Shown here is a 46-nucleotide RNA sequence from Amazona guildingii, a member of the family "Histone 3' UTR stem-loop". About the family: The mRNAs of metazoan histone genes lack a poly-A tail. 3' end processing occurs at a site between a highly conserved stem-loop (modelled by this family) and a purine rich region around 20 nts downstream (the histone downstream element, or HDE). The stem-loop is bound by a 31 kDa stem-loop binding protein (SLBP - also termed the histone hairpin binding protein, or HBP). Together with U7 snRNA binding of the HDE, SLBP binding nucleate s the formation of the processing complex. It is annotated as a cis-regulatory element. Pairs were carried over by alignment from the consensus structure, which is taken from published work.

Nucleotides: 046
Base pairs, nucleotide, nucleotide: 006021007020008019009018010017011016
Number, partner (000 for none) and nucleotide at each position: 001000c002000c003000a004000a005000a006021g007020g008019c009018u010017c011016u012000u013000u014000u015000a016011a017010g018009a019008g020007c021006c022000g023000c024000c025000u026000a027000c028000a029000u030000a031000c032000u033000c034000a035000g036000u037000a038000a039000a040000a041000g042000a043000g044000c045000u046000u